Source information:
This 63-nucleotide sequence from Anabas testudineus belongs to the Rfam family "mir-7552 microRNA precursor family". It scores 72 bits against the family's covariance model. Gene Ontology terms of the family: miRNA-mediated post-transcriptional gene silencing and RISC complex.

[Rfam]
Nucleotides: 063
Base pairs, nucleotide, nucleotide: 003058004057005056006055007054008053009052010051012049013048014047015046016045017044018043019042020041021040
Number, partner (000 for none) and nucleotide at each position: 001000u002000u003058a004057c005056a006055a007054u008053u009052a010051a011000a012049g013048g014047a015046u016045a017044u018043u019042u020041c021040u022000u023000g024000c025000g026000a027000a028000c029000g030000a031000a032000u033000g034000a035000a036000a037000c038000u039000c040021a041020g042019a043018a044017a045016u046015g047014u048013c049012u050000u051010u052009u053008a054007a055006u056005u057004g058003u059000u060000u061000g062000g063000c